[Rfam]
RNA: Bacterial large subunit ribosomal RNA, nucleotides 25 to 607
RNA sequence: UGGAUGCCUUGGCGCCUGAAGCCGAUGAAGGACGUAGGCGACUGCGAUAAGCCAUGGGGAGCUGUCUACCAAGCUUCGAUCCAUGGAUCUCCGAAUGGGGAAACCCGACAUCAGUUAAUGCGAUGUCACCCCUGCCUGAAUAUAUAGGGCAGGAGGAGGGAACAAGGGGAAUUGAAACAUCUCAGUACCCUUUAGGAAAGGAAAACAACAGUGACUCCCCAAGUAGCGGCGAGCGAAAAGGGAAGAGCCUAAACCGAACCGGUGUGAUUAGCCUGGCGGCGUUGCCGGUUCGGGGUAGUGGGAGUGAUCAUCUAGGUUCGCCAGAGCCUAGGAGGAGUUACAAAGUUGGCUGGUUAGUCAAAGCAGUCUGGAAAGCUGCGCCACAGAGGGUAAUGGCCCCGUAGACGAAAACCUCCAACCUCCUUCGAUCACCACCCAAGUAGCGCGGGAUCUGGGAAAGCCCGUGUGAAUCUGCGAGGACCACCUCGUAAGGCUAAGUACUCCUCAGGCGACCGAUAGUGAACUAGUACCGUGAGGGAAAGGUGAAAAGUACCCCGAGAGGGGAGUGAAAUAGAACCUGAAA
Numbered sequence: 001u002g003g004a005u006g007c008c009u010u011g012g013c014g015c016c017u018g019a020a021g022c023c024g025a026u027g028a029a030g031g032a033c034g035u036a037g038g039c040g041a042c043u044g045c046g047a048u049a050a051g052c053c054a055u056g057g058g059g060a061g062c063u064g065u066c067u068a069c070c071a072a073g074c075u076u077c078g079a080u081c082c083a084u085g086g087a088u089c090u091c092c093g094a095a096u097g098g099g100g101a102a103a104c105c106c107g108a109c110a111u112c113a114g115u116u117a118a119u120g121c122g123a124u125g126u127c128a129c130c131c132c133u134g135c136c137u138g139a140a141u142a143u144a145u146a147g148g149g150c151a152g153g154a155g156g157a158g159g160g161a162a163c164a165a166g167g168g169g170a171a172u173u174g175a176a177a178c179a180u181c182u183c184a185g186u187a188c189c190c191u192u193u194a195g196g197a198a199a200g201g202a203a204a205a206c207a208a209c210a211g212u213g214a215c216u217c218c219c220c221a222a223g224u225a226g227c228g229g230c231g232a233g234c235g236a237a238a239a240g241g242g243a244a245g246a247g248c249c250u251a252a253a254c255c256g257a258a259c260c261g262g263u264g265u266g267a268u269u270a271g272c273c274u275g276g277c278g279g280c281g282u283u284g285c286c287g288g289u290u291c292g293g294g295g296u297a298g299u300g301g302g303a304g305u306g307a308u309c310a311u312c313u314a315g316g317u318u319c320g321c322c323a324g325a326g327c328c329u330a331g332g333a334g335g336a337g338u339u340a341c342a343a344a345g346u347u348g349g350c351u352g353g354u355u356a357g358u359c360a361a362a363g364c365a366g367u368c369u370g371g372a373a374a375g376c377u378g379c380g381c382c383a384c385a386g387a388g389g390g391u392a393a394u395g396g397c398c399c400c401g402u403a404g405a406c407g408a409a410a411a412c413c414u415c416c417a418a419c420c421u422c423c424u425u426c427g428a429u430c431a432c433c434a435c436c437c438a439a440g441u442a443g444c445g446c447g448g449g450a451u452c453u454g455g456g457a458a459a460g461c462c463c464g465u466g467u468g469a470a471u472c473u474g475c476g477a478g479g480a481c482c483a484c485c486u487c488g489u490a491a492g493g494c495u496a497a498g499u500a501c502u503c504c505u506c507a508g509g510c511g512a513c514c515g516a517u518a519g520u521g522a523a524c525u526a527g528u529a530c531c532g533u534g535a536g537g538g539a540a541a542g543g544u545g546a547a548a549a550g551u552a553c554c555c556c557g558a559g560a561g562g563g564g565a566g567u568g569a570a571a572u573a574g575a576a577c578c579u580g581a582a583a
Base pairs, nucleotide, nucleotide: 006578007543008542011514012513013511014510015509016508017507018506019505020502021501022159023158030092031091032090033046034045035044052086053085054084055083056082057081058080061074062073063072097106098105099104107127108126109125110124111123112122129156130155131153132152133151134150135149136148137147163195164192165191166190167189168188174181175180205212206211215498216243217242218241219240226234227233246495247494248493249492254293255292256291257290258289259288260287261286262285263284264283300437301436302435305431306430307429308428309427343421345419346418347417348416349415352413353412354411355410357406358405359404363379364378365377366376368375382386388400389399390398443467444466445465446464447463448462449461451459474489475488476487477486478485530537531536553564554563555562556561